[Rfam]
RNA sequence: UGACAGACACAGGGGAACCGUGCGCCGCCGGCCGGCGGCGCACGGUUGAGAACGCCUCGGCGGACCCUUCGAACCUGAUGGCCAAUACCAGCGUAGGAAGUGUUGACAUGACGCAA
Number, nucleotide and partner (000 for none) at each position: 001u000002g000003a000004c000005a000006g104007a103008c102009a101010c100011a068012g067013g066014g065015g000016a000017a046018c045019c044020g043021u042022g041023c040024g039025c038026c037027g036028c035029c000030g000031g000032c000033c000034g000035g028036c027037g026038g025039c024040g023041c022042a021043c020044g019045g018046u017047u000048g000049a000050g000051a000052a000053c062054g061055c060056c000057u000058c000059g000060g055061c054062g053063g000064a000065c014066c013067c012068u011069u000070c000071g000072a000073a000074c097075c096076u095077g094078a000079u000080g089081g088082c000083c000084a000085a000086u000087a000088c081089c080090a000091g000092c000093g000094u077095a076096g075097g074098a000099a000100g010101u009102g008103u007104u006105g000106a000107c000108a000109u000110g000111a000112c000113g000114c000115a000116a000